[Rfam]
RNA sequence: GCCGAGCUGAGUCACGUUAGCUUGUGACCCAAGUGGGGGCACUAAGGUGGUGGAACAGCUCAUUGGCUUUGCUGGGUUGGACUGUGGCUGCAAUAAGUUGGCCUGCCCACUCCAAGUUGAGAAUUGAAUCAUGGGACUUAAAGCGAAGGCAUAGGUCUCCUGGUUCUUAGAGUGGAGGGCACUGCGUGAGGCUGGUUUCACAGAACAGCGAACACCUCCCAUUCCCAACAGUGGAGGGAUAACAGGUUGCUGCAACCACAGUCCACCAUGGCCUGGUGAGCCUAGAUGCUUGGACCAUCACUUUU
Numbered sequence: 001g002c003c004g005a006g007c008u009g010a011g012u013c014a015c016g017u018u019a020g021c022u023u024g025u026g027a028c029c030c031a032a033g034u035g036g037g038g039g040c041a042c043u044a045a046g047g048u049g050g051u052g053g054a055a056c057a058g059c060u061c062a063u064u065g066g067c068u069u070u071g072c073u074g075g076g077u078u079g080g081a082c083u084g085u086g087g088c089u090g091c092a093a094u095a096a097g098u099u100g101g102c103c104u105g106c107c108c109a110c111u112c113c114a115a116g117u118u119g120a121g122a123a124u125u126g127a128a129u130c131a132u133g134g135g136a137c138u139u140a141a142a143g144c145g146a147a148g149g150c151a152u153a154g155g156u157c158u159c160c161u162g163g164u165u166c167u168u169a170g171a172g173u174g175g176a177g178g179g180c181a182c183u184g185c186g187u188g189a190g191g192c193u194g195g196u197u198u199c200a201c202a203g204a205a206c207a208g209c210g211a212a213c214a215c216c217u218c219c220c221a222u223u224c225c226c227a228a229c230a231g232u233g234g235a236g237g238g239a240u241a242a243c244a245g246g247u248u249g250c251u252g253c254a255a256c257c258a259c260a261g262u263c264c265a266c267c268a269u270g271g272c273c274u275g276g277u278g279a280g281c282c283u284a285g286a287u288g289c290u291u292g293g294a295c296c297a298u299c300a301c302u303u304u305u
Stems, first nucleotide, its partner, number of pairs: 001040003004023007028037003044304010056292002058289002063284001065282003069279010079264008089254002093251001099249007107238002110236005116229004121224004126166006133159008143150002167172001174219005183212001185210003192203003
Plant signal recognition particle RNA: a 305-nucleotide sequence from Glycine tomentella. Its family is annotated with signal recognition particle, endoplasmic reticulum targeting and SRP-dependent cotranslational protein targeting to membrane, signal sequence recognition in the Gene Ontology. The sequence is in the family's curated seed alignment. Pairs were carried over by alignment from the consensus structure, which is taken from published work. On this family, see Wild et al., Curr Opin Struct Biol 2002: "Towards the structure of the mammalian signal recognition particle". It is annotated as a non-coding RNA gene.